[Rfam]
RNA sequence: UGACGGGGGCCCGCACAAGCGGUGGAGCAUGUGGUUUAAUUCGAUGCAACGCGAAGAACCUUACCAGCCCUUGACAUCCUACGAAUCCUGCCGAGAGGUGGGGGUGCCUUUGGGAGCGUAGAGACAGGUGCUGCAUGGCUGUCGUCAGCUCGUGUCGUGAGAUGUUGGGUUAAGUCCCGUAACGAGCGCAACCCUUGUCCCUCGUUGCCAGCGGGUCAAGCCGGGGACUCGAGGGAGACUGCCGGUGUGAAACCGGAGGAAGGUGGGGAUGACGUCAAGUCAUCAUGGCCCUUAUGGGCUGGGCUACACACGUGCUACAAUGGGGGGUACAGAGGGUUGCGAAGCGGCGACGCGGAGCCAAUCCCAAAAAACUCCUCGUAGUCCGGAUUGCAGUCUGCAACUCGACUGCAUGAAGUCGGAAUCGCUAGUAAUCGCGGAUCAGCAUGCCGCGGUGAAUCCGUUCCCGGGCCUUGUACACACCGCCCGUCACACCAUGGGAGUUGGCUGCACCAGAAGGCGGUGGCUGAACCGGAAGGGGGGUGCCGACCACGGUGUGGUCAAUGACUGGGGUGAAGUCGUAACAAGG
Numbered sequence: 001u002g003a004c005g006g007g008g009g010c011c012c013g014c015a016c017a018a019g020c021g022g023u024g025g026a027g028c029a030u031g032u033g034g035u036u037u038a039a040u041u042c043g044a045u046g047c048a049a050c051g052c053g054a055a056g057a058a059c060c061u062u063a064c065c066a067g068c069c070c071u072u073g074a075c076a077u078c079c080u081a082c083g084a085a086u087c088c089u090g091c092c093g094a095g096a097g098g099u100g101g102g103g104g105u106g107c108c109u110u111u112g113g114g115a116g117c118g119u120a121g122a123g124a125c126a127g128g129u130g131c132u133g134c135a136u137g138g139c140u141g142u143c144g145u146c147a148g149c150u151c152g153u154g155u156c157g158u159g160a161g162a163u164g165u166u167g168g169g170u171u172a173a174g175u176c177c178c179g180u181a182a183c184g185a186g187c188g189c190a191a192c193c194c195u196u197g198u199c200c201c202u203c204g205u206u207g208c209c210a211g212c213g214g215g216u217c218a219a220g221c222c223g224g225g226g227a228c229u230c231g232a233g234g235g236a237g238a239c240u241g242c243c244g245g246u247g248u249g250a251a252a253c254c255g256g257a258g259g260a261a262g263g264u265g266g267g268g269a270u271g272a273c274g275u276c277a278a279g280u281c282a283u284c285a286u287g288g289c290c291c292u293u294a295u296g297g298g299c300u301g302g303g304c305u306a307c308a309c310a311c312g313u314g315c316u317a318c319a320a321u322g323g324g325g326g327g328u329a330c331a332g333a334g335g336g337u338u339g340c341g342a343a344g345c346g347g348c349g350a351c352g353c354g355g356a357g358c359c360a361a362u363c364c365c366a367a368a369a370a371a372c373u374c375c376u377c378g379u380a381g382u383c384c385g386g387a388u389u390g391c392a393g394u395c396u397g398c399a400a401c402u403c404g405a406c407u408g409c410a411u412g413a414a415g416u417c418g419g420a421a422u423c424g425c426u427a428g429u430a431a432u433c434g435c436g437g438a439u440c441a442g443c444a445u446g447c448c449g450c451g452g453u454g455a456a457u458c459c460g461u462u463c464c465c466g467g468g469c470c471u472u473g474u475a476c477a478c479a480c481c482g483c484c485c486g487u488c489a490c491a492c493c494a495u496g497g498g499a500g501u502u503g504g505c506u507g508c509a510c511c512a513g514a515a516g517g518c519g520g521u522g523g524c525u526g527a528a529c530c531g532g533a534a535g536g537g538g539g540g541u542g543c544c545g546a547c548c549a550c551g552g553u554g555u556g557g558u559c560a561a562u563g564a565c566u567g568g569g570g571u572g573a574a575g576u577c578g579u580a581a582c583a584a585g586g
Base pairs, nucleotide, nucleotide: 001477002476003474004473005472007471008470009469010468011467012466013465015461016460019425020424021423022422023421024318026316027315028314029313030312031311032310033309034307035306040055041054042053043052064302065301066300067299068298069297070296077124078123079121080120081119082118083117086103087102088101089100090099091098092097105116107114108113127291128290130289131288132287133286136285137284138280139279140278141276143274144273148187149186150185151184152183153182154163155162156161166179167178168177169176193268194267195266196265198236199235200234201233202232203231204230208225209224212223213222214221239259240258242256243255244254245253246252322377323376324375325374326373327372328371334365335364336363339358340357344353345352346351384415389410390409391408392407393406394405395404431453432452433451434450435449436448437447480585482582485578486577490572491571492570493569495567496566497565500562501561502560503559504558505557506556507555508554509553510552511551516547518545519544520543521542523541524540525539529536530535
A member of the RNA family "Bacterial small subunit ribosomal RNA" from Caldichromatium japonicum, 586 nucleotides of a longer RNA. The base pairs follow the family's consensus structure, which is taken from published work. Lineage of the source: Bacteria > Pseudomonadati > Pseudomonadota > Chromatiales > Caldichromatium.